Annotation: The family of this 80-nucleotide RNA from an Anaerolineales bacterium is "c-di-GMP-I riboswitch aptamer". A search with the family's covariance model found it, with a score of 63 bits. GEMM was predicted in a large-scale screen for bacterial structured RNA regulatory elements.
RNA sequence: UUUUUUUGUUGCCAAACCCUUCGUGAGAGGGGGACGGAAAACCACGGGUCUUUCUCUGGAAAGACGGCCGGGUUGCCUGG
Numbered sequence: 001u002u003u004u005u006u007u008g009u010u011g012c013c014a015a016a017c018c019c020u021u022c023g024u025g026a027g028a029g030g031g032g033g034a035c036g037g038a039a040a041a042c043c044a045c046g047g048g049u050c051u052u053u054c055u056c057u058g059g060a061a062a063g064a065c066g067g068c069c070g071g072g073u074u075g076c077c078u079g080g
Stems, first nucleotide, its partner, number of pairs: 012037002017032006040074004045070003048065007